Glycine riboswitch aptamer: a 102-nucleotide RNA from Microbacteriaceae bacterium MWH-Ta3.
The pairing is the family consensus, mapped onto this sequence.
This family represents the bacterial glycine riboswitch.
Rfam links the family to the GO term glycine biosynthetic process.
Taxonomically the source falls in Microbacteriaceae (Bacteria, Bacillati, Actinomycetes, Micrococcales).
[Rfam]
RNA sequence: AAAAACAUUGCGGGAGAGAUCGCCGCCGCCCAGCGGAUGCGCGAUCACCGAAGGAGCAAGCCUCCCCGCCAAUCUCUCAGGUCCUUGUACCGCAGUGCAUUA
Number, nucleotide and partner (000 for none) at each position: 001a000002a000003a000004a000005a000006c097007a096008u095009u094010g093011c092012g091013g090014g000015a000016g000017a000018g000019a045020u044021c043022g042023c000024c000025g000026c000027c000028g000029c000030c000031c000032a000033g000034c000035g000036g000037a000038u000039g000040c000041g000042c022043g021044a020045u019046c000047a082048c081049c080050g078051a077052a000053g000054g076055a075056g074057c000058a000059a000060g069061c068062c000063u000064c000065c000066c000067c000068g061069c060070c000071a000072a000073u000074c056075u055076c054077u051078c050079a000080g049081g048082u047083c000084c000085u000086u000087g000088u000089a000090c013091c012092g011093c010094a009095g008096u007097g006098c000099a000100u000101u000102a000